[Rfam]
RNA sequence: UGAUCGGUCCGGGCCCCUCUGGCAGCUCACCGCUGCGAUGUCGGACUGAACGU
Numbered sequence: 001u002g003a004u005c006g007g008u009c010c011g012g013g014c015c016c017c018u019c020u021g022g023c024a025g026c027u028c029a030c031c032g033c034u035g036c037g038a039u040g041u042c043g044g045a046c047u048g049a050a051c052g053u
Base pairs, nucleotide, nucleotide: 006047007046008045009044010043011042012041022036023035024034025033026032